[Rfam]
Small nucleolar RNA R38: an 85-nucleotide sequence from Theobroma umbraticum.
RNA sequence: UGUUGUGAAUGAAGAGGCGAAUCAAUGUUAUUACAGUUAUCCCUGUCUGAUUACUGUUGCUGAUAAUUUGUUUUCUGACACAACA
Numbered sequence: 001u002g003u004u005g006u007g008a009a010u011g012a013a014g015a016g017g018c019g020a021a022u023c024a025a026u027g028u029u030a031u032u033a034c035a036g037u038u039a040u041c042c043c044u045g046u047c048u049g050a051u052u053a054c055u056g057u058u059g060c061u062g063a064u065a066a067u068u069u070g071u072u073u074u075c076u077g078a079c080a081c082a083a084c085a
Base pairs, nucleotide, nucleotide: 001085002084003083004082005081006080007079

Gene Ontology terms of the family: RNA processing and nucleolus.
A search with the family's covariance model found it, with a score of 61 bits.
snoR38 is a C/D box small nucleolar RNA conserved across yeast, human, Arabidopsis and rice.
The literature on the family includes a 1995 paper in Trends Biochem Sci by Bachellerie et al., "Antisense snoRNAs: a family of nucleolar RNAs with long complementarities to rRNA".
The base pairs follow the family's consensus structure, which was predicted with PFOLD.